[Rfam]
RNA sequence: CCGUGCUAGGUGGGGAGGUAGCGGUGCCCUGUACUCGCAAUCCGCUAUAGCGAGACUGAAUGCCUUGCUGAGGUGCCGUUACGUUAAGGCCUGCCUUAAGGGAGUAGUGUUGACACUCGGGUCCCGCGCAACAGAAACUCGUGAACCAUGUCAGGUCCGGAAGGAAGCAGCAUUAAGCGAAACUUUCUGUGUGCCGCGGGGAAGCCUGGGUCGAGCUAUCAACUUAAGUAACGCUUAAUGUAGCGUCAUCGAAGCUUGGUGCACGG
Numbered sequence: 001c002c003g004u005g006c007u008a009g010g011u012g013g014g015g016a017g018g019u020a021g022c023g024g025u026g027c028c029c030u031g032u033a034c035u036c037g038c039a040a041u042c043c044g045c046u047a048u049a050g051c052g053a054g055a056c057u058g059a060a061u062g063c064c065u066u067g068c069u070g071a072g073g074u075g076c077c078g079u080u081a082c083g084u085u086a087a088g089g090c091c092u093g094c095c096u097u098a099a100g101g102g103a104g105u106a107g108u109g110u111u112g113a114c115a116c117u118c119g120g121g122u123c124c125c126g127c128g129c130a131a132c133a134g135a136a137a138c139u140c141g142u143g144a145a146c147c148a149u150g151u152c153a154g155g156u157c158c159g160g161a162a163g164g165a166a167g168c169a170g171c172a173u174u175a176a177g178c179g180a181a182a183c184u185u186u187c188u189g190u191g192u193g194c195c196g197c198g199g200g201g202a203a204g205c206c207u208g209g210g211u212c213g214a215g216c217u218a219u220c221a222a223c224u225u226a227a228g229u230a231a232c233g234c235u236u237a238a239u240g241u242a243g244c245g246u247c248a249u250c251g252a253a254g255c256u257u258g259g260u261g262c263a264c265g266g
Stems, first nucleotide, its partner, number of pairs: 001266006009057003012030004017025001019023001034054005063259002067255003072250004079243010092230002096227005104220001106217003115211008123200006129191002132189005139180004148173004156165003

Source information: A member of the RNA family "Bacterial large signal recognition particle RNA" from Gracilibacillus kekensis, 266 nucleotides long. NCBI's taxonomy places the organism under Bacteria, Bacillota, Caryophanales, Bacillaceae, Gracilibacillus. About the family: The signal recognition particle (SRP) is a universally conserved ribonucleoprotein involved in the co-translational targeting of proteins to membranes. On this family, see Rosenblad et al., Nucleic Acids Res 2003: "SRPDB: Signal Recognition Particle Database".